[Rfam]
Shown here is a 123-nucleotide RNA sequence from Gossypium gossypioides, a member of the family "MIR7504 microRNA precursor family". Pairs were carried over by alignment from the consensus structure, which was predicted with RNAalifold. Rfam 15.1 lists 7,343 matches to the family in 61 species. Rfam links the family to the GO terms miRNA-mediated post-transcriptional gene silencing and RISC complex.

RNA sequence: AAUAGAAAAAUGACAAAUCAGAUUUUUUCUCUUGAUUUUUAAGAUUUUUAGUUGGAUUUGAAUUUUUUCAGGAGAAAAAAGCUGAAAAUCAGGAGAAAAAAUCUGAUUUGUCAUUUUUUUAUC
Numbered sequence: 001a002a003u004a005g006a007a008a009a010a011u012g013a014c015a016a017a018u019c020a021g022a023u024u025u026u027u028u029c030u031c032u033u034g035a036u037u038u039u040u041a042a043g044a045u046u047u048u049u050a051g052u053u054g055g056a057u058u059u060g061a062a063u064u065u066u067u068u069c070a071g072g073a074g075a076a077a078a079a080a081g082c083u084g085a086a087a088a089u090c091a092g093g094a095g096a097a098a099a100a101a102u103c104u105g106a107u108u109u110g111u112c113a114u115u116u117u118u119u120u121a122u123c
Stems, first nucleotide, its partner, number of pairs: 002122026029095011041083001045079004